Shown here is a 249-nucleotide sequence from Actinocatenispora rupis, a member of the family "Actinobacteria sRNA Ms_IGR-5". NCBI's taxonomy places the organism under Bacteria, Bacillati, Micromonosporales, Micromonosporaceae, Actinocatenispora. The family's RNA type in Rfam is small RNA. A reference for the family is Li et al. (2013), "Identification of small RNAs in Mycobacterium smegmatis using heterologous Hfq", RNA. The pairing is the family consensus, mapped onto this sequence.
[Rfam]
RNA sequence: ACGUGGGAAAGGAGGUGGUCCGAUCAAUGUGUGGUAAACGGACUCACGAGGUGGUUGUCCGCUAGGCCGCCGAACGUCGGACGACUGGUUUUUACCGACCAGAGGCAGCCAUCGUCGCCAACACGUGGGCGGCGACGACCGUGGCGGCCGGUGAAUCCCAGACAACCAUCCGACCCAUGGGUUCCGGGACUUGUCCACCCGGACCUUUCCUGCGACAGCAGGGGAGGAAGCACCCAUGGGUCGUUUUUU
Numbered sequence: 001a002c003g004u005g006g007g008a009a010a011g012g013a014g015g016u017g018g019u020c021c022g023a024u025c026a027a028u029g030u031g032u033g034g035u036a037a038a039c040g041g042a043c044u045c046a047c048g049a050g051g052u053g054g055u056u057g058u059c060c061g062c063u064a065g066g067c068c069g070c071c072g073a074a075c076g077u078c079g080g081a082c083g084a085c086u087g088g089u090u091u092u093u094a095c096c097g098a099c100c101a102g103a104g105g106c107a108g109c110c111a112u113c114g115u116c117g118c119c120a121a122c123a124c125g126u127g128g129g130c131g132g133c134g135a136c137g138a139c140c141g142u143g144g145c146g147g148c149c150g151g152u153g154a155a156u157c158c159c160a161g162a163c164a165a166c167c168a169u170c171c172g173a174c175c176c177a178u179g180g181g182u183u184c185c186g187g188g189a190c191u192u193g194u195c196c197a198c199c200c201g202g203a204c205c206u207u208u209c210c211u212g213c214g215a216c217a218g219c220a221g222g223g224g225a226g227g228a229a230g231c232a233c234c235c236a237u238g239g240g241u242c243g244u245u246u247u248u249u
Stems, first nucleotide, its partner, number of pairs: 014059006060153004065149003069145004171243012184202005